[Rfam]
RNA sequence: AAAGUUGCUGCAGUUAAGAAGCGGGAGAGGGCAGUCCGCCGUGAGACGAGCCACCGCCCGUGCCGCCCCUUGCCUCUCGGUGCCUCCUUGAUGCUAUUAGCUGAGUGUCCCACGGCCUGAAGCAUUUACUUUGAAAAAGCAGGCCCGAACCUCCUGGAUACCACAGCUAGGAAUAAUGGAAUAGGACCUCAGUUCCAUUUUGUUGGUUUUCAGAACUGAGGCCAUGAUUAAGAGGGAUGGCCAGGGGCAUUUGUAUUGCGCCGCUAGAGGUGAAAUUCUUGGACCGGCGCAAUAUGGACCAGAGCGAAAGCAUUUGCCAACAAUGUUUUCACUAAUGGAGAAUGAAAGUCGGAGGUUUGAAGAUGAUCAGAUACCGUCGUAGUUCCGACCAUGCACUGGCGAUGCGGCGGCGUUAUUCCCAUGACCCGCCGGGCAGCUUCCGGGAAGCCAAAGUCUUUGGGUUCCGGGGGGAGUAUGGUUGCAAAGCUGAAACUUAAAGGAAU
Numbered sequence: 001a002a003a004g005u006u007g008c009u010g011c012a013g014u015u016a017a018g019a020a021g022c023g024g025g026a027g028a029g030g031g032c033a034g035u036c037c038g039c040c041g042u043g044a045g046a047c048g049a050g051c052c053a054c055c056g057c058c059c060g061u062g063c064c065g066c067c068c069c070u071u072g073c074c075u076c077u078c079g080g081u082g083c084c085u086c087c088u089u090g091a092u093g094c095u096a097u098u099a100g101c102u103g104a105g106u107g108u109c110c111c112a113c114g115g116c117c118u119g120a121a122g123c124a125u126u127u128a129c130u131u132u133g134a135a136a137a138a139g140c141a142g143g144c145c146c147g148a149a150c151c152u153c154c155u156g157g158a159u160a161c162c163a164c165a166g167c168u169a170g171g172a173a174u175a176a177u178g179g180a181a182u183a184g185g186a187c188c189u190c191a192g193u194u195c196c197a198u199u200u201u202g203u204u205g206g207u208u209u210u211c212a213g214a215a216c217u218g219a220g221g222c223c224a225u226g227a228u229u230a231a232g233a234g235g236g237a238u239g240g241c242c243a244g245g246g247g248c249a250u251u252u253g254u255a256u257u258g259c260g261c262c263g264c265u266a267g268a269g270g271u272g273a274a275a276u277u278c279u280u281g282g283a284c285c286g287g288c289g290c291a292a293u294a295u296g297g298a299c300c301a302g303a304g305c306g307a308a309a310g311c312a313u314u315u316g317c318c319a320a321c322a323a324u325g326u327u328u329u330c331a332c333u334a335a336u337g338g339a340g341a342a343u344g345a346a347a348g349u350c351g352g353a354g355g356u357u358u359g360a361a362g363a364u365g366a367u368c369a370g371a372u373a374c375c376g377u378c379g380u381a382g383u384u385c386c387g388a389c390c391a392u393g394c395a396c397u398g399g400c401g402a403u404g405c406g407g408c409g410g411c412g413u414u415a416u417u418c419c420c421a422u423g424a425c426c427c428g429c430c431g432g433g434c435a436g437c438u439u440c441c442g443g444g445a446a447g448c449c450a451a452a453g454u455c456u457u458u459g460g461g462u463u464c465c466g467g468g469g470g471g472a473g474u475a476u477g478g479u480u481g482c483a484a485a486g487c488u489g490a491a492a493c494u495u496a497a498a499g500g501a502a503u
Stems, first nucleotide, its partner, number of pairs: 011466001013464001019463001021343001027336001234330004238325002246318004252296002256292008267278003304311002348389006358382001362378004393462001395454002398438003403433001405431006412425003442449002468495003477488004
RNA: Eukaryotic small subunit ribosomal RNA, nucleotides 647 to 1149